Annotation
Shown here is a 102-nucleotide RNA from Cyclobacterium marinum, a member of the family "SAM riboswitch aptamer (S box leader)". Rfam's curators write: The SAM riboswitch is found upstream of a number of genes which code for proteins involved in methionine or cysteine biosynthesis in Gram-positive bacteria. The family's consensus secondary structure is taken from published work.
[Rfam]
RNA sequence: CGCUUAUCGAGAAAGACGGAGGGUAGGGCCCUAUGAUGUCUUAGCAACCUGAGUUAACAAGGUGCUAAUUCCCGUUCCGGAAAUGCCGGAUAAAGAUGAGCC
Numbered sequence: 001c002g003c004u005u006a007u008c009g010a011g012a013a014a015g016a017c018g019g020a021g022g023g024u025a026g027g028g029c030c031c032u033a034u035g036a037u038g039u040c041u042u043a044g045c046a047a048c049c050u051g052a053g054u055u056a057a058c059a060a061g062g063u064g065c066u067a068a069u070u071c072c073c074g075u076u077c078c079g080g081a082a083a084u085g086c087c088g089g090a091u092a093a094a095g096a097u098g099a100g101c102c
Base pairs, nucleotide, nucleotide: 002101003100004099005098006097007096008095013042014041015040016039017038021031022030023029026073027072028071043066044065045064046063048062049061051058070094076090077089078088079087080086

Lineage of the source: Bacteria > Pseudomonadati > Cyclobacteriaceae > Cyclobacterium > Cyclobacterium marinum.
Gene Ontology term of the family: regulation of gene expression.